Rfam assigns this 97-nucleotide RNA sequence from Kribbella sp. VKM Ac-2500 to the family "Bacterial small signal recognition particle RNA". Lineage of the source: Bacteria > Actinomycetota > Actinomycetes > Propionibacteriales > Kribbella. The family's RNA type in Rfam is non-coding RNA gene. The family's consensus secondary structure is taken from published work. Rfam links the family to the GO terms SRP-dependent cotranslational protein targeting to membrane, signal sequence recognition and signal recognition particle, plasma membrane targeting.

RNA sequence: GAUGGUUCCCCGCGUGGCGGUAUCUCGCCCAACUCCCCCAGGGCCGGAAGGCAGCAAGGGUAAGUGAGCUCUUCCGGGUGCGCGGGGAAUCCUUAUG
Numbered sequence: 001g002a003u004g005g006u007u008c009c010c011c012g013c014g015u016g017g018c019g020g021u022a023u024c025u026c027g028c029c030c031a032a033c034u035c036c037c038c039c040a041g042g043g044c045c046g047g048a049a050g051g052c053a054g055c056a057a058g059g060g061u062a063a064g065u066g067a068g069c070u071c072u073u074c075c076g077g078g079u080g081c082g083c084g085g086g087g088a089a090u091c092c093u094u095a096u097g
Base pairs, nucleotide, nucleotide: 004091005090006089007088008087009086010085011084012083013082014081015078018076019075020074022072024068025067026066027065028064035060036059037058043052044051045050